[Rfam]
RNA sequence: AGGAGGAUUGAGAAGGUAAGACAGUUAUUUCGUACUGGUUCUUACUGGUUAUGGCCUCCAAGAUUAAAAUGGUGCAAAUCAGCCCAUGUUCUCUCUCCUGAUUUGAGGGGAAACAAUACUGCAUUUGCACAUAUAGU
Numbered sequence: 001a002g003g004a005g006g007a008u009u010g011a012g013a014a015g016g017u018a019a020g021a022c023a024g025u026u027a028u029u030u031c032g033u034a035c036u037g038g039u040u041c042u043u044a045c046u047g048g049u050u051a052u053g054g055c056c057u058c059c060a061a062g063a064u065u066a067a068a069a070u071g072g073u074g075c076a077a078a079u080c081a082g083c084c085c086a087u088g089u090u091c092u093c094u095c096u097c098c099u100g101a102u103u104u105g106a107g108g109g110g111a112a113a114c115a116a117u118a119c120u121g122c123a124u125u126u127g128c129a130c131a132u133a134u135a136g137u
Stems, first nucleotide, its partner, number of pairs: 002059005015046004019040002022037004073129003077125002082120001087115004092111005
The record is a 137-nucleotide sequence from Alligator mississippiensis, which matches "Small nucleolar RNA SNORA47" in Rfam. By type it is an H/ACA-box small nucleolar RNA. Lineage of the source: Eukaryota > Vertebrata > Dipnotetrapodomorpha > Alligatoridae > Alligator. For this family Rfam cites "RNomics: an experimental approach that identifies 201 candidates for novel, small, non-messenger RNAs in mouse" (Huttenhofer et al., EMBO J, 2001).